[Rfam]
RNA sequence: GGGUUACUCCUGCGCUUACGCGCCGUUUCGAUGAAGAUUCGCACCUCUAUCAAAACGGGUAACCCCACCUCUCGGCAAGGAGUACUGUCAGAUCUAGUCUGAACUUCUACACAUAAAAGUGCGGUGUGCGGUGACGCAUAGUGACGAAAAGUGCAGCAAAACAAGGGAUUGUGUGGAUGGAUCGUCACAUUAAGGCGCGGUUU
Numbered sequence: 001g002g003g004u005u006a007c008u009c010c011u012g013c014g015c016u017u018a019c020g021c022g023c024c025g026u027u028u029c030g031a032u033g034a035a036g037a038u039u040c041g042c043a044c045c046u047c048u049a050u051c052a053a054a055a056c057g058g059g060u061a062a063c064c065c066c067a068c069c070u071c072u073c074g075g076c077a078a079g080g081a082g083u084a085c086u087g088u089c090a091g092a093u094c095u096a097g098u099c100u101g102a103a104c105u106u107c108u109a110c111a112c113a114u115a116a117a118a119g120u121g122c123g124g125u126g127u128g129c130g131g132u133g134a135c136g137c138a139u140a141g142u143g144a145c146g147a148a149a150a151g152u153g154c155a156g157c158a159a160a161a162c163a164a165g166g167g168a169u170u171g172u173g174u175g176g177a178u179g180g181a182u183c184g185u186c187a188c189a190u191u192a193a194g195g196c197g198c199g200g201u202u203u
Stems, first nucleotide, its partner, number of pairs: 001065007009058002012023004025056004030051004035046002075188001079183002083180001087104002089101005106177004111172003
Rfam assigns this 203-nucleotide RNA from Methylococcus sp. EFPC2 to the family "Proteobacterial sRNA psRNA2". It scores 115 bits against the family's covariance model. The family has 7 seed sequences and 122 matches in Rfam 15.1. By type it is a small RNA. A reference for the family is Gvakharia et al. (2010), "Computational prediction and transcriptional analysis of sRNAs in Nitrosomonas europaea", FEMS Microbiol Lett.